Annotation:
Shown here is a 102-nucleotide RNA sequence from Desulfosporosinus youngiae, a member of the family "Purine riboswitch aptamer". The match comes from Rfam's covariance-model search (82 bits). Riboswitches are metabolite binding domains within certain messenger RNAs that serve as precision sensors for their corresponding targets.
Nucleotides: 102
Stems, first nucleotide, its partner, number of pairs: 018088008029049001031047005058078005064072001
Number, partner (000 for none) and nucleotide at each position: 001000g002000a003000u004000u005000g006000a007000c008000a009000a010000a011000u012000a013000a014000a015000u016000a017000g018088u019087g020086u021085u022084c023083a024082u025081a026000u027000a028000g029049u030000c031047g032046c033045a034044g035043a036000g037000a038000u039000a040000u041000g042000g043035u044034c045033u046032g047031c048000a049029a050000g051000u052000u053000u054000c055000u056000a057000c058078c059077g060076g061075a062074c063000u064072g065000c066000c067000g068000u069000a070000a071000a072064u073000u074062g075061u076060c077059c078058g079000a080000c081025u082024a083023u084022g085021a086020g087019c088018g089000a090000a091000a092000g093000a094000u095000g096000u097000a098000c099000g100000a101000a102000g